Rfam assigns this 126-nucleotide RNA sequence from Coregonus sp. 'balchen' to the family "Small nucleolar RNA SNORA55". The base pairs follow the family's consensus structure, which was predicted with PFOLD.

[Rfam]
RNA sequence: GCACCUCAGCAAACACUGUCCUCCUGUCAGUGUUGGACAUGGGCAAUGAUGGUGCCAUAGUGACUCAAAAUAUAUCCAGACGGAUCUCCCUCUAUUGGAGCCUGUCUCUACAACUUUGAGACAAAA
Numbered sequence: 001g002c003a004c005c006u007c008a009g010c011a012a013a014c015a016c017u018g019u020c021c022u023c024c025u026g027u028c029a030g031u032g033u034u035g036g037a038c039a040u041g042g043g044c045a046a047u048g049a050u051g052g053u054g055c056c057a058u059a060g061u062g063a064c065u066c067a068a069a070a071u072a073u074a075u076c077c078a079g080a081c082g083g084a085u086c087u088c089c090c091u092c093u094a095u096u097g098g099a100g101c102c103u104g105u106c107u108c109u110a111c112a113a114c115u116u117u118g119a120g121a122c123a124a125a126a
Stems, first nucleotide, its partner, number of pairs: 001055005017045005023036002065119005078107006085100001092098002
Description:
NCBI's taxonomy places the organism under Eukaryota, Euteleostomi, Neopterygii, Salmonidae, Coregonus. The family's RNA type in Rfam is H/ACA-box small nucleolar RNA. The family has 29 seed sequences and 1,476 matches in Rfam 15.1.